[Rfam]
RNA sequence: CAACUUGUUUCUGUGCGGGCUACAUCAGGGACUUAGCGACUGUGUUAUUUUACAGUCAGGUACCUGAAGUAGCGCGCGCGGAGGCAAGUUU
Numbered sequence: 001c002a003a004c005u006u007g008u009u010u011c012u013g014u015g016c017g018g019g020c021u022a023c024a025u026c027a028g029g030g031a032c033u034u035a036g037c038g039a040c041u042g043u044g045u046u047a048u049u050u051u052a053c054a055g056u057c058a059g060g061u062a063c064c065u066g067a068a069g070u071a072g073c074g075c076g077c078g079c080g081g082a083g084g085c086a087a088g089u090u091u
Stems, first nucleotide, its partner, number of pairs: 009083004014078001016076002019073004031061003038057004